[Rfam]
RNA sequence: GCCGCAAUGAGCUUCAGUGGUCUGGAGUGCAGGCUUCAAACCUGUAGACGAUGAAAGUCGUAGUGGUUCGAUUCCACCCUUGCGGC
Numbered sequence: 001g002c003c004g005c006a007a008u009g010a011g012c013u014u015c016a017g018u019g020g021u022c023u024g025g026a027g028u029g030c031a032g033g034c035u036u037c038a039a040a041c042c043u044g045u046a047g048a049c050g051a052u053g054a055a056a057g058u059c060g061u062a063g064u065g066g067u068u069c070g071a072u073u074c075c076a077c078c079c080u081u082g083c084g085g086c
Base pairs, nucleotide, nucleotide: 001086002085003084004083005082006081007080009078012027013026014025015024016023017022028046029045030044031043032042033041048061049060050059051058052057063077064076065075066074
The record is an 86-nucleotide RNA sequence from Clytia hemisphaerica, which matches "Selenocysteine transfer RNA" in Rfam. For this family Rfam cites "Eukaryotic selenocysteine tRNA has the 9/4 secondary structure" (Mizutani and Goto, FEBS Lett, 2000). The organism belongs to Clytia, within Eukaryota. Clan: tRNA clan.